[Rfam]
RNA sequence: UGCAGCCCAGUCAAAUUCGGUCCCUGUCCCCCCAUGGCGGGGACCGGCCACCGGCUGCCACAGUGACCUCCGUGCCCACGUGCCCCGUGUCCCCUCCCGUGGGACCCAGGGGGUGAAUGCCACUGGAGACAUGG
Numbered sequence: 001u002g003c004a005g006c007c008c009a010g011u012c013a014a015a016u017u018c019g020g021u022c023c024c025u026g027u028c029c030c031c032c033c034a035u036g037g038c039g040g041g042g043a044c045c046g047g048c049c050a051c052c053g054g055c056u057g058c059c060a061c062a063g064u065g066a067c068c069u070c071c072g073u074g075c076c077c078a079c080g081u082g083c084c085c086c087g088u089g090u091c092c093c094c095u096c097c098c099g100u101g102g103g104a105c106c107c108a109g110g111g112g113g114u115g116a117a118u119g120c121c122a123c124u125g126g127a128g129a130c131a132u133g134g
Base pairs, nucleotide, nucleotide: 002058003057004056005055018046019045020044021043022042023041024040025039026038027037028036071126074123083112084111085110088108

Small nucleolar RNA SNORA5: a 134-nucleotide sequence from Falcunculus frontatus. The match comes from Rfam's covariance-model search (61 bits). NCBI's taxonomy places the organism under Eukaryota, Bilateria, Gnathostomata, Theropoda, Falcunculus. Clan: SNORA5 clan. ACA5 is a member of the H/ACA class of snoRNA that guide the sites of modification of uridines to pseudouridines. The family has 6 seed sequences and 2,226 matches in Rfam 15.1.